[Rfam]
RNA sequence: GAGUGUUACAUCUCUUAGAAUUUGUCUAGCAGGUUUUUCAGUCCUUACUGGAAGACCCCU
Numbered sequence: 001g002a003g004u005g006u007u008a009c010a011u012c013u014c015u016u017a018g019a020a021u022u023u024g025u026c027u028a029g030c031a032g033g034u035u036u037u038u039c040a041g042u043c044c045u046u047a048c049u050g051g052a053a054g055a056c057c058c059c060u
Stems, first nucleotide, its partner, number of pairs: 032057011
RNA: U7 small nuclear RNA
Organism: Panthera leo